A member of the RNA family "Actinobacteria sRNA Ms_IGR-5" from Yimella sp. cx-51, 223 nucleotides long. Pairs were carried over by alignment from the consensus structure.
RNA sequence: ACACGAGAAAGGAGGUGGUCCGACUCAUGAUUUCUACUCGGACGCGUGAGGUGGUUGCGCGCUAGCGCAAUCCGUUCGGUCCGCCGUAGUGGCAGACCAUCGGACGUGGCGGCCUUUCGCCUUUGGCGGGGGUAGCGGAAACCAACGCAAUCGCCGCAGCCCGUGGGAGUGUGCAUCGUCCAGCACACGCCGGUGGAAGCCGGAGCCCACGGGCUGUUUCCGU
Numbered sequence: 001a002c003a004c005g006a007g008a009a010a011g012g013a014g015g016u017g018g019u020c021c022g023a024c025u026c027a028u029g030a031u032u033u034c035u036a037c038u039c040g041g042a043c044g045c046g047u048g049a050g051g052u053g054g055u056u057g058c059g060c061g062c063u064a065g066c067g068c069a070a071u072c073c074g075u076u077c078g079g080u081c082c083g084c085c086g087u088a089g090u091g092g093c094a095g096a097c098c099a100u101c102g103g104a105c106g107u108g109g110c111g112g113c114c115u116u117u118c119g120c121c122u123u124u125g126g127c128g129g130g131g132g133u134a135g136c137g138g139a140a141a142c143c144a145a146c147g148c149a150a151u152c153g154c155c156g157c158a159g160c161c162c163g164u165g166g167g168a169g170u171g172u173g174c175a176u177c178g179u180c181c182a183g184c185a186c187a188c189g190c191c192g193g194u195g196g197a198a199g200c201c202g203g204a205g206c207c208c209a210c211g212g213g214c215u216g217u218u219u220c221c222g223u
Stems, first nucleotide, its partner, number of pairs: 015058005060137005066131001156217012169188006
A search with the family's covariance model found it, with a score of 62 bits. Taxonomically the source falls in Yimella (Bacteria, Actinomycetota, Actinomycetes, Micrococcales). Rfam classes the family as a small RNA.